[Rfam]
RNA: Bacterial large signal recognition particle RNA
Organism: Pseudothermotoga lettingae
RNA sequence: CCACGAUAGGCGGGGGGCUGGCGGUCCCCUGUACCCGAAACCCGCCAUAGCGGGGCCGAAAUCCUGCUUGAGGCUACUUAAGUCGGGAAACAGGCUGAACUGAACGUGAUGAAGGCUGGGUCCUGUGCAACGAUGUACCAUGAACCUGGUCAGGUCCGGAAGGAAGCAGCCAUAAGUGGUUCACAUCGUGUGCCGCAGGGGAGCCUGGCUGGAGCGGGAGGUGCAGUCAUGCCCCGGUUCGGGUAAGUCGACAGCAGGUUCGUGG
Numbered sequence: 001c002c003a004c005g006a007u008a009g010g011c012g013g014g015g016g017g018c019u020g021g022c023g024g025u026c027c028c029c030u031g032u033a034c035c036c037g038a039a040a041c042c043c044g045c046c047a048u049a050g051c052g053g054g055g056c057c058g059a060a061a062u063c064c065u066g067c068u069u070g071a072g073g074c075u076a077c078u079u080a081a082g083u084c085g086g087g088a089a090a091c092a093g094g095c096u097g098a099a100c101u102g103a104a105c106g107u108g109a110u111g112a113a114g115g116c117u118g119g120g121u122c123c124u125g126u127g128c129a130a131c132g133a134u135g136u137a138c139c140a141u142g143a144a145c146c147u148g149g150u151c152a153g154g155u156c157c158g159g160a161a162g163g164a165a166g167c168a169g170c171c172a173u174a175a176g177u178g179g180u181u182c183a184c185a186u187c188g189u190g191u192g193c194c195g196c197a198g199g200g201g202a203g204c205c206u207g208g209c210u211g212g213a214g215c216g217g218g219a220g221g222u223g224c225a226g227u228c229a230u231g232c233c234c235c236g237g238u239u240c241g242g243g244u245a246a247g248u249c250g251a252c253a254g255c256a257g258g259u260u261c262g263u264g265g
Stems, first nucleotide, its partner, number of pairs: 001265006009057003012030008034054004063258006072249004078242002081239007091231002095226003099222002105216003114210008122199006128190002131188005137180005147172004155164003